Shown here is a 181-nucleotide RNA sequence from Lentibacillus amyloliquefaciens, a member of the family "Lysine riboswitch aptamer". The match comes from Rfam's covariance-model search (117 bits). Its family is annotated with lysine biosynthetic process in the Gene Ontology. From the family's description: Riboswitches are metabolite binding domains within certain messenger RNAs that serve as precision sensors for their corresponding targets. Allosteric rearrangement of mRNA structure is mediated by ligand binding, and this results in modulation of gene expression. This family includes riboswitches that sense lysine in a number of genes involved in lysine metabolism, including lysC. The organism belongs to Lentibacillus, within Bacteria.

Nucleotides: 181
Stems, first nucleotide, its partner, number of pairs: 006176006016083005023076002032068006039061001087117005094110005118145007126138004147166007
Number, partner (000 for none) and nucleotide at each position: 001000g002000a003000a004000g005000u006176a007175g008174g009173u010172a011171g012000a013000g014000g015000u016083g017082c018081g019080a020079a021000g022000g023076u024075c025000a026000u027000c028000a029000g030000u031000a032068c033067a034066c035065a036064g037063u038000a039061g040000c041000a042000g043000g044000a045000u046000u047000a048000u049000g050000g051000g052000a053000u054000c055000c056000g057000u058000u059000g060000a061039u062000g063037a064036u065035u066034g067033u068032g069000g070000a071000a072000a073000g074000g075024g076023g077000a078000a079020u080019u081018c082017g083016c084000c085000g086000a087117a088116a089115c090114u091113u092000a093000a094110g095109a096108g097107a098106a099000u100000c101000u102000c103000a104000u105000a106098u107097u108096c109095u110094c111000a112000g113091g114090g115089g116088u117087u118145g119144g120143u121142u122141c123140u124139g125000c126138u127137a128136u129135u130000g131000a132000a133000u134000a135129a136128g137127u138126a139124c140123a141122g142121g143120a144119c145118u146000g147166u148165c149164a150163u151162a152161u153160a154000g155000g156000a157000g158000a159000c160153u161152a162151u163150a164149u165148g166147g167000a168000g169000g170000g171011c172010u173009a174008u175007c176006u177000u178000g179000c180000g181000c